The family of this 136-nucleotide sequence from Clostridium sp. CAG:299 is "c-di-AMP riboswitch aptamer (ydaO/yuaA leader)". A search with the family's covariance model found it, with a score of 90 bits. The organism belongs to Clostridium, within Bacteria.
RNA sequence: CAAUGCAGAACGUCGAAUGCCGUCAGCCGCGGCAGCGGGAGAACCAAUCUUUUGGGGUGAAUUGGCAGGCUUUGCCAUAGGAAACCUUCUUUUCCGAAUCCGUCAGCUAAUCUCGCAGACAUUGGAAGGAUUUGCG
Dot-bracket structure: ...........(((...(((((.......)))))((((((....((......))(((.....((((.......))))..((((........))))...))).........)))))).)))................